[Rfam]
The record is a 206-nucleotide RNA from Ruthenibacterium lactatiformans, which matches "6S / SsrS RNA" in Rfam. From the family's description: E. coli 6S RNA was the first non coding RNA to be sequenced, but its function was unknown until recently. Taxonomically the source falls in Ruthenibacterium (Bacteria, Bacillati, Eubacteriales, Oscillospiraceae). On this family, see Wassarman and Storz, Cell 2000: "6S RNA regulates E. coli RNA polymerase activity".

RNA sequence: GGCAGCCUGCCCUGUGCGAUUUGAUGCGCCAUAUAUUUAAUCCUACUAACCAUUUAAAGGGAGCCCGGAGUCCUAUGUGAGGGGAUCGCAGACCUCCCGCCCGGCCUUGGCCGCAAGCGGAGGAAGGGAGCGUGAAACUCCGGCAGGGCACCCACCUGCCAUUUCGGUAGGUUUUGGUGUGGCGCAGACGGCAGGGCAGGUUACUG
Numbered sequence: 001g002g003c004a005g006c007c008u009g010c011c012c013u014g015u016g017c018g019a020u021u022u023g024a025u026g027c028g029c030c031a032u033a034u035a036u037u038u039a040a041u042c043c044u045a046c047u048a049a050c051c052a053u054u055u056a057a058a059g060g061g062a063g064c065c066c067g068g069a070g071u072c073c074u075a076u077g078u079g080a081g082g083g084g085a086u087c088g089c090a091g092a093c094c095u096c097c098c099g100c101c102c103g104g105c106c107u108u109g110g111c112c113g114c115a116a117g118c119g120g121a122g123g124a125a126g127g128g129a130g131c132g133u134g135a136a137a138c139u140c141c142g143g144c145a146g147g148g149c150a151c152c153c154a155c156c157u158g159c160c161a162u163u164u165c166g167g168u169a170g171g172u173u174u175u176g177g178u179g180u181g182g183c184g185c186a187g188a189c190g191g192c193a194g195g196g197c198a199g200g201u202u203a204c205u206g
Stems, first nucleotide, its partner, number of pairs: 002204001004202012017190002034179004039174002042171002059153003063149004068144001076143001079140003088131002093123005